[Rfam]
RNA sequence: AAUAAGUUUAUUUGUGGGUCUGUGUCUAACAUUUGACCGACCAUCUUAUUUAAAUUCUUUUAUAAUUAAUAUUUUUAUUGUUAUUAGAUGAUAAUAACAUAAAUAAUACUUUAUACGUGAUUUUUUUUUAUUUUUUAAAUAAAAUUUUUAAAUAAGACGGACGGUCGAAUGUUGGACACAGAAACCCACAAAUGAACUUAUU
Numbered sequence: 001a002a003u004a005a006g007u008u009u010a011u012u013u014g015u016g017g018g019u020c021u022g023u024g025u026c027u028a029a030c031a032u033u034u035g036a037c038c039g040a041c042c043a044u045c046u047u048a049u050u051u052a053a054a055u056u057c058u059u060u061u062a063u064a065a066u067u068a069a070u071a072u073u074u075u076u077a078u079u080g081u082u083a084u085u086a087g088a089u090g091a092u093a094a095u096a097a098c099a100u101a102a103a104u105a106a107u108a109c110u111u112u113a114u115a116c117g118u119g120a121u122u123u124u125u126u127u128u129u130a131u132u133u134u135u136u137a138a139a140u141a142a143a144a145u146u147u148u149u150a151a152a153u154a155a156g157a158c159g160g161a162c163g164g165u166c167g168a169a170u171g172u173u174g175g176a177c178a179c180a181g182a183a184a185c186c187c188a189c190a191a192a193u194g195a196a197c198u199u200a201u202u
Stems, first nucleotide, its partner, number of pairs: 025176006032169008041160002044157006
Dot-bracket structure: ........................((((((.((((((((.((.((((((......................................................................................................)))))).)).)))))))).))))))..........................

About this RNA
The family of this 202-nucleotide RNA from Oryza rufipogon is "MIR812 microRNA precursor family". A search with the family's covariance model found it, with a score of 129 bits. Taxonomically the source falls in Oryza (Eukaryota, Euphyllophyta, Spermatophyta, Mesangiospermae). The base pairs follow the family's consensus structure, which was predicted with RNAalifold.